The family of this 86-nucleotide RNA sequence from Desulfoscipio gibsoniae is "skipping-rope RNA".
The family's consensus secondary structure is taken from published work.

RNA sequence: CGUUUUGGAGGUGGGCAAAACCCGUCCCCCACACACCUCACAGGAGGUCAAAAGAGAUGCAGGAACAGGCGGUCAUGCCCAAAACG
Numbered sequence: 001c002g003u004u005u006u007g008g009a010g011g012u013g014g015g016c017a018a019a020a021c022c023c024g025u026c027c028c029c030c031a032c033a034c035a036c037c038u039c040a041c042a043g044g045a046g047g048u049c050a051a052a053a054g055a056g057a058u059g060c061a062g063g064a065a066c067a068g069g070c071g072g073u074c075a076u077g078c079c080c081a082a083a084a085c086g
Base pairs, nucleotide, nucleotide: 001086002085003084004083005082006081007080008079011032012031013030014029015028022072023071024070025069026068034054035048036047037046038045059078060077061076063074
By type it is a small RNA.